[Rfam]
RNA: DUF805b RNA
RNA sequence: UUGGGCGAAGCUGAAAACCCUUAACAGAGUAGGCA
Numbered sequence: 001u002u003g004g005g006c007g008a009a010g011c012u013g014a015a016a017a018c019c020c021u022u023a024a025c026a027g028a029g030u031a032g033g034c035a
Stems, first nucleotide, its partner, number of pairs: 003020003010034003